RNA sequence: AGAUAUUCUUGGGGGUGCCCCACUGUGGUGGCUGAGAUAAUACCCGUAACCUGAUCCAGAUAAUGCUGGCGUAGGGAAAGAAGCUAGAGUUGCC
Numbered sequence: 001a002g003a004u005a006u007u008c009u010u011g012g013g014g015g016u017g018c019c020c021c022a023c024u025g026u027g028g029u030g031g032c033u034g035a036g037a038u039a040a041u042a043c044c045c046g047u048a049a050c051c052u053g054a055u056c057c058a059g060a061u062a063a064u065g066c067u068g069g070c071g072u073a074g075g076g077a078a079a080g081a082a083g084c085u086a087g088a089g090u091u092g093c094c
Base pairs, nucleotide, nucleotide: 006082007081008080009079010078012045013044014043016040017032018031019030021028050075051074052073053072056069057068058067059066

Rfam assigns this 94-nucleotide sequence from Porphyromonas sp. COT-290 OH860 to the family "TPP riboswitch aptamer (THI element)". It scores 65 bits against the family's covariance model. Rfam links the family to the GO term thiamine pyrophosphate binding. The source organism's lineage runs through Bacteria, Pseudomonadati, Bacteroidia, Porphyromonadaceae and Porphyromonas. The base pairs follow the family's consensus structure, which is taken from published work.